[Rfam]
RNA: U8 small nucleolar RNA
RNA sequence: UUAUCAGGAAGCAUAAUUCUUACCCGUUCUUCCCUUUGGAGGGCAGAAUAGAACAUGAUGACUUGAGUUCGCAUGAUUCAUGAUUAGGAGCUCUGCAUAAUCAGGUCUUGCAACAUCGAUCGCUCCUGUUUGAU
Numbered sequence: 001u002u003a004u005c006a007g008g009a010a011g012c013a014u015a016a017u018u019c020u021u022a023c024c025c026g027u028u029c030u031u032c033c034c035u036u037u038g039g040a041g042g043g044c045a046g047a048a049u050a051g052a053a054c055a056u057g058a059u060g061a062c063u064u065g066a067g068u069u070c071g072c073a074u075g076a077u078u079c080a081u082g083a084u085u086a087g088g089a090g091c092u093c094u095g096c097a098u099a100a101u102c103a104g105g106u107c108u109u110g111c112a113a114c115a116u117c118g119a120u121c122g123c124u125c126c127u128g129u130u131u132g133a134u
Stems, first nucleotide, its partner, number of pairs: 024046001026044001028043006075093002078090001081086001098122001100120003105117001